[Rfam]
RNA sequence: AUUCGUCAGGAGAGCGCGCCCGGCCAGCAGGCCCAGCGGCGCCGCCGAAGGCGCAGGGGCAACCCCGAACGCUCAGGCAAAAGGACUGG
Numbered sequence: 001a002u003u004c005g006u007c008a009g010g011a012g013a014g015c016g017c018g019c020c021c022g023g024c025c026a027g028c029a030g031g032c033c034c035a036g037c038g039g040c041g042c043c044g045c046c047g048a049a050g051g052c053g054c055a056g057g058g059g060c061a062a063c064c065c066c067g068a069a070c071g072c073u074c075a076g077g078c079a080a081a082a083g084g085a086c087u088g089g
Base pairs, nucleotide, nucleotide: 006089007088008087009086016042017041018040019039044078045077046076047074048073051072052071053070056066057065
A member of the RNA family "Glycine riboswitch aptamer" from Comamonas terrigena, 89 nucleotides long.
The base pairs follow the family's consensus structure.